[Rfam]
RNA sequence: UCUGGGGGCCAGCUGGUGUGCGGUGCAGCACAGCACAGUGCGACAGAGGCCCCGCCGCAAGUCACCUGGGGAUUGAGCCUGGGGCCCCCUUUUUGGCUGGGAGCCUGGAAUUUAAGCCCCUAAAGCC
Numbered sequence: 001u002c003u004g005g006g007g008g009c010c011a012g013c014u015g016g017u018g019u020g021c022g023g024u025g026c027a028g029c030a031c032a033g034c035a036c037a038g039u040g041c042g043a044c045a046g047a048g049g050c051c052c053c054g055c056c057g058c059a060a061g062u063c064a065c066c067u068g069g070g071g072a073u074u075g076a077g078c079c080u081g082g083g084g085c086c087c088c089c090u091u092u093u094u095g096g097c098u099g100g101g102a103g104c105c106u107g108g109a110a111u112u113u114a115a116g117c118c119c120c121u122a123a124a125g126c127c
Stems, first nucleotide, its partner, number of pairs: 005053006014045002017042001023036003068120001070118002073115002079108005087101003

This 127-nucleotide RNA sequence from Pelusios castaneus belongs to the Rfam family "Small nucleolar RNA ACA64". The family has 30 seed sequences and 9,537 matches in Rfam 15.1. The family's RNA type in Rfam is H/ACA-box small nucleolar RNA. A reference for the family is Schattner et al. (2006), "A computational screen for mammalian pseudouridylation guide H/ACA RNAs", RNA. A search with the family's covariance model found it, with a score of 36 bits. Pairs were carried over by alignment from the consensus structure, which was predicted with WAR.